About this RNA: The family of this 98-nucleotide RNA sequence from Lactobacillus psittaci is "Purine riboswitch aptamer". Taxonomically the source falls in Lactobacillus psittaci (Bacteria, Bacillati, Bacilli, Lactobacillaceae). The base pairs follow the family's consensus structure, which is taken from published work.
RNA sequence: UUAUUAAUAAGAUUUAUUAUCUGUAUAUCGUUGCAAUACGGGCAACAGUUUCUACCUGAAACCUUAAAUUUCAGACUAUGGAUAUUUUAGCUUUUUAA
Numbered sequence: 001u002u003a004u005u006a007a008u009a010a011g012a013u014u015u016a017u018u019a020u021c022u023g024u025a026u027a028u029c030g031u032u033g034c035a036a037u038a039c040g041g042g043c044a045a046c047a048g049u050u051u052c053u054a055c056c057u058g059a060a061a062c063c064u065u066a067a068a069u070u071u072c073a074g075a076c077u078a079u080g081g082a083u084a085u086u087u088u089a090g091c092u093u094u095u096u097a098a
Base pairs, nucleotide, nucleotide: 018084019083020082021081022080023079024078025077030046031045032044033043034042056074057073058072059071060070061069
Dot-bracket structure: .................((((((((....(((((.......))))).........((((((.......))))))..))))))))..............